Rfam assigns this 43-nucleotide RNA from Nocardia niigatensis to the family "L31-Actinobacteria ribosomal protein leader". The base pairs follow the family's consensus structure, which is taken from published work. The source organism's lineage runs through Bacteria, Actinomycetota, Nocardiaceae, Nocardia and Nocardia niigatensis. Rfam's curators put it in the seed alignment. For this family Rfam cites "Discovery of 20 novel ribosomal leader candidates in bacteria and archaea" (Eckert and Weinberg, BMC Microbiol, 2020).
[Rfam]
RNA sequence: UCGGUUCCGGUUCACGUCUCGCAUCGCCAGGCGACCCGGAGCC
Numbered sequence: 001u002c003g004g005u006u007c008c009g010g011u012u013c014a015c016g017u018c019u020c021g022c023a024u025c026g027c028c029a030g031g032c033g034a035c036c037c038g039g040a041g042c043c
Stems, first nucleotide, its partner, number of pairs: 003043003007039004015033005021027002